[Rfam]
Nucleotides: 087
Stems, first nucleotide, its partner, number of pairs: 001086007010025004027057005063079005
Number, partner (000 for none) and nucleotide at each position: 001086g002085u003084c004083u005082c006081c007080u008000u009000a010025g011024c012023u013022c014000a015000a016000u017000u018000g019000g020000g021000a022013g023012a024011g025010c026000g027057c028056c029055a030054g031053a032000c033000u034000g035000a036000a037000g038000u039000c040000u041000u042000c043000g044000g045000u046000c047000a048000c049000u050000a051000a052000a053031u054030c055029u056028g057027g058000a059000g060000g061000u062000a063079u064078c065077g066076u067075g068000u069000u070000c071000g072000a073000u074000c075067c076066a077065c078064g079063a080007a081006g082005g083004g084003g085002a086001c087000a